mir-1 microRNA precursor family: a 75-nucleotide sequence from Macaca mulatta.
Rfam's curators write: This family represents the microRNA (miRNA) mir-1 family. miRNAs are transcribed as ~70nt precursors (modelled here) and subsequently processed by the Dicer enzyme to give a ~22nt product. In this case the mature sequence comes from the 3' arm of the precursor. The extents of the hairpin precursors are not generally known and are estimated based on hairpin prediction. The products are thought to have regulatory roles through complementarity to mRNA. The involvement of Dicer in miRNA processing suggests a relationship with the phenomenon of RNA interference. miRNAs are numbered based on the sequence of the mature RNA. This family also contains the mir-206 from human, which appears to be related to mir-1.
RNA sequence: CCCGAGGCCACAUGCUUCUUUAUAUCCCCAUAUGGAUUACUUUGCUAUGGAAUGUAAGGAAGUGUGUGGUUUCGG
Numbered sequence: 001c002c003c004g005a006g007g008c009c010a011c012a013u014g015c016u017u018c019u020u021u022a023u024a025u026c027c028c029c030a031u032a033u034g035g036a037u038u039a040c041u042u043u044g045c046u047a048u049g050g051a052a053u054g055u056a057a058g059g060a061a062g063u064g065u066g067u068g069g070u071u072u073c074g075g
Stems, first nucleotide, its partner, number of pairs: 007070019028050005
A reference for the family is Lee and Ambros (2001), "An extensive class of small RNAs in Caenorhabditis elegans", Science. The family's consensus secondary structure was predicted with RNAalifold. The sequence is in the family's curated seed alignment. Rfam 15.1 lists 4,474 matches to the family in 965 species.